[Rfam]
RNA: Iron response element II
RNA sequence: UUUUUAUCAGUUUCAGUGUAAAUUAUAAAAG
Numbered sequence: 001u002u003u004u005u006a007u008c009a010g011u012u013u014c015a016g017u018g019u020a021a022a023u024u025a026u027a028a029a030a031g
Base pairs, nucleotide, nucleotide: 001031002030003029004028005027006026007025009024010023011022012021013020014018